The family of this 104-nucleotide sequence from Pseudohongiella spirulinae is "t44 RNA". Rfam describes the family as follows. This family consists of a number of bacterial RNA genes of between 135 and 170 bases in length. It is annotated as a small RNA. A search with the family's covariance model found it, with a score of 73 bits. The base pairs follow the family's consensus structure, which was predicted with LocARNA.
RNA sequence: AGCUAUAUCAAUUAAUGUCACACACGUACCGGCACAUGAAUCCUGGGUGCCCGAUCAGAGUUGAAUCUGUAAGGGUUGGAUCAUGGGGUGCGUGGAGGCCUAAC
Numbered sequence: 001a002g003c004u005a006u007a008u009c010a011a012u013u014a015a016u017g018u019c020a021c022a023c024a025c026g027u028a029c030c031g032g033c034a035c036a037u038g039a040a041u042c043c044u045g046g047g048u049g050c051c052c053g054a055u056c057a058g059a060g061u062u063g064a065a066u067c068u069g070u071a072a073g074g075g076u077u078g079g080a081u082c083a084u085g086g087g088g089u090g091c092g093u094g095g096a097g098g099c100c101u102a103a104c
Stems, first nucleotide, its partner, number of pairs: 023094008035085005041080003049076004